This 72-nucleotide RNA sequence from Cnephaeus nilssonii belongs to the Rfam family "mir-9209 microRNA precursor family". The family's consensus secondary structure was predicted with RNAalifold.
RNA sequence: AGCACAGUGGUCGGCAAACCGUGGCUCGCGAGCCACAUGCGGCUCGUGAGUCACGGUUUGCCGCUCUGUUGA
Numbered sequence: 001a002g003c004a005c006a007g008u009g010g011u012c013g014g015c016a017a018a019c020c021g022u023g024g025c026u027c028g029c030g031a032g033c034c035a036c037a038u039g040c041g042g043c044u045c046g047u048g049a050g051u052c053a054c055g056g057u058u059u060g061c062c063g064c065u066c067u068g069u070u071g072a
Stems, first nucleotide, its partner, number of pairs: 004069004009065002012063018031044004
Dot-bracket structure: ...((((.((.((((((((((((((((((.((((......)))).))))))))))))))))))))))))...